This 90-nucleotide RNA from Prunus armeniaca belongs to the Rfam family "Small nucleolar RNA snoR27". The source organism's lineage runs through Eukaryota, Streptophytina, Embryophyta, Mesangiospermae and Prunus. Pairs were carried over by alignment from the consensus structure, which was predicted with WAR. The family's RNA type in Rfam is C/D-box small nucleolar RNA.
[Rfam]
RNA sequence: AGUGGAUCAAUGAUGUUUAUCAAUACUGCGUUAUCUAUCUGCAAUUUCCCACAAGGAAUUGAAGAUAAUCUGAAGUUACUGAGAUCUGAU
Numbered sequence: 001a002g003u004g005g006a007u008c009a010a011u012g013a014u015g016u017u018u019a020u021c022a023a024u025a026c027u028g029c030g031u032u033a034u035c036u037a038u039c040u041g042c043a044a045u046u047u048c049c050c051a052c053a054a055g056g057a058a059u060u061g062a063a064g065a066u067a068a069u070c071u072g073a074a075g076u077u078a079c080u081g082a083g084a085u086c087u088g089a090u
Stems, first nucleotide, its partner, number of pairs: 001090001003088005